[Rfam]
RNA sequence: CUAAACAGAAGUCAGAUGUGAGAGGUCAGAGGUGAGAAAAUGAUAAAGACGUAUAAGGAUCUCAGAAUAUAUCAACAAUCAUACAAGCUAAGCAUAGAGAUACACAAGCUAACCCAGAACUAUCCUGGGUAUGAAAGAUACGAAUUAGGGAGUCAACUAAGAAGGGCAGCAACAUCAAUACCGUUAAAUAUAGCCGAAGGAUAUGGAAAGAAAGAAUCAGAGGCAGAUUUUAAGAGGUAUUUAAAGAUAGCGCUUGGAUCAAGCAAUGAAAUAGAAGUAUUACUAGACUUAAGUUAUGACUUAGGAUAUAUAGAUAAGACAUUGCAUAACGAACUAAUAGAAGAAUACACAGCUUUAAGGAAGCAAAUAUACACGAUGAUAAAGAAGUGGAGAGUAUCCGACAUCUGACUUCCGACAUCUGACUUCUGUUUGGGGUA
Numbered sequence: 001c002u003a004a005a006c007a008g009a010a011g012u013c014a015g016a017u018g019u020g021a022g023a024g025g026u027c028a029g030a031g032g033u034g035a036g037a038a039a040a041u042g043a044u045a046a047a048g049a050c051g052u053a054u055a056a057g058g059a060u061c062u063c064a065g066a067a068u069a070u071a072u073c074a075a076c077a078a079u080c081a082u083a084c085a086a087g088c089u090a091a092g093c094a095u096a097g098a099g100a101u102a103c104a105c106a107a108g109c110u111a112a113c114c115c116a117g118a119a120c121u122a123u124c125c126u127g128g129g130u131a132u133g134a135a136a137g138a139u140a141c142g143a144a145u146u147a148g149g150g151a152g153u154c155a156a157c158u159a160a161g162a163a164g165g166g167c168a169g170c171a172a173c174a175u176c177a178a179u180a181c182c183g184u185u186a187a188a189u190a191u192a193g194c195c196g197a198a199g200g201a202u203a204u205g206g207a208a209a210g211a212a213a214g215a216a217u218c219a220g221a222g223g224c225a226g227a228u229u230u231u232a233a234g235a236g237g238u239a240u241u242u243a244a245a246g247a248u249a250g251c252g253c254u255u256g257g258a259u260c261a262a263g264c265a266a267u268g269a270a271a272u273a274g275a276a277g278u279a280u281u282a283c284u285a286g287a288c289u290u291a292a293g294u295u296a297u298g299a300c301u302u303a304g305g306a307u308a309u310a311u312a313g314a315u316a317a318g319a320c321a322u323u324g325c326a327u328a329a330c331g332a333a334c335u336a337a338u339a340g341a342a343g344a345a346u347a348c349a350c351a352g353c354u355u356u357a358a359g360g361a362a363g364c365a366a367a368u369a370u371a372c373a374c375g376a377u378g379a380u381a382a383a384g385a386a387g388u389g390g391a392g393a394g395u396a397u398c399c400g401a402c403a404u405c406u407g408a409c410u411u412c413c414g415a416c417a418u419c420u421g422a423c424u425u426c427u428g429u430u431u432g433g434g435g436u437a
Base pairs, nucleotide, nucleotide: 001433002432003431004430005429006428007427008426009425010424011423012422013421014420015419016418017417018416019415